[Rfam]
Background:
The family of this 77-nucleotide RNA sequence from Lupinus albus is "Small nucleolar RNA R21". The match comes from Rfam's covariance-model search (54 bits). For this family Rfam cites "Identification of 66 box C/D snoRNAs in Arabidopsis thaliana: extensive gene duplications generated multiple isoforms predicting new ribosomal RNA 2'-O-methylation sites" (Barneche et al., J Mol Biol, 2001). Gene Ontology terms of the family: nucleolus and RNA processing. It is annotated as a C/D-box small nucleolar RNA. The family's consensus secondary structure was predicted with PFOLD.

RNA sequence: CAUCCCUAUGAUGAUUUUUUGUUAAUAUUAAAGUAGUGGACUGAAUCUUGUUGAGGAGAAACAAAAUCUGAGGGAUG
Numbered sequence: 001c002a003u004c005c006c007u008a009u010g011a012u013g014a015u016u017u018u019u020u021g022u023u024a025a026u027a028u029u030a031a032a033g034u035a036g037u038g039g040a041c042u043g044a045a046u047c048u049u050g051u052u053g054a055g056g057a058g059a060a061a062c063a064a065a066a067u068c069u070g071a072g073g074g075a076u077g
Stems, first nucleotide, its partner, number of pairs: 001077006